Notes: Rfam assigns this 136-nucleotide RNA sequence from Streptococcus sp. DD10 to the family "MarS sRNA". The literature on the family includes a 2017 paper in Sci Rep by Pappesch et al., "The Regulatory Small RNA MarS Supports Virulence of Streptococcus pyogenes". It scores 94 bits against the family's covariance model. It is annotated as a small RNA. The organism belongs to Streptococcus, within Bacteria. About the family: Interacts with the 5'UTR of the mga transcript (the multiple virulence gene regulator gene) and was renamed MarS for mag-activating regulatory sRNA. In MarS deletion strains expression of mga and several Mga-activated genes is reduced.
[Rfam]
RNA sequence: AUGCGAUGAGUCGAUUGGCAGUUUAUCUGCCCAUUGAAGCAUGGGAGGUCAUAGACGCAGGAGCGGACCUUGGUGAGCUGUGUGAACCAGUUCAUCACAUGAAGAUGCCCCUAGUCCUUUGUUUUUGAGGCUCUUU
Number, nucleotide and partner (000 for none) at each position: 001a000002u000003g000004c000005g000006a000007u000008g000009a000010g000011u000012c036013g035014a034015u033016u000017g031018g030019c029020a028021g027022u000023u000024u000025a000026u000027c021028u020029g019030c018031c017032c000033a015034u014035u013036g012037a000038a000039g000040c000041a000042u000043g110044g109045g108046a070047g069048g068049u067050c000051a000052u000053a000054g000055a000056c065057g064058c063059a000060g000061g000062a000063g058064c057065g056066g000067a049068c048069c047070u046071u097072g096073g095074u094075g093076a092077g091078c090079u000080g000081u000082g000083u000084g000085a000086a000087c000088c000089a000090g078091u077092u076093c075094a074095u073096c072097a071098c107099a106100u105101g000102a000103a000104g000105a100106u099107g098108c045109c044110c043111c000112u000113a000114g000115u000116c130117c129118u128119u127120u000121g125122u000123u000124u000125u121126u000127g119128a118129g117130g116131c000132u000133c000134u000135u000136u000